A member of the RNA family "mir-133 microRNA precursor family" from Polypterus senegalus, 74 nucleotides long.
RNA sequence: UUGCUGUGGCUGGUCAAAUGGAACCAAGUCGGGAGACUUACUGAGGUUUGGUCCCCUUCAACCAGCUACUGCAC
Numbered sequence: 001u002u003g004c005u006g007u008g009g010c011u012g013g014u015c016a017a018a019u020g021g022a023a024c025c026a027a028g029u030c031g032g033g034a035g036a037c038u039u040a041c042u043g044a045g046g047u048u049u050g051g052u053c054c055c056c057u058u059c060a061a062c063c064a065g066c067u068a069c070u071g072c073a074c
Stems, first nucleotide, its partner, number of pairs: 003072002006069001008067007017058002020054003024051007
The source organism's lineage runs through Eukaryota, Deuterostomia, Craniata, Polypteridae and Polypterus.
mir-133 was first experimentally characterised in mouse and homologues have since been discovered in several other species.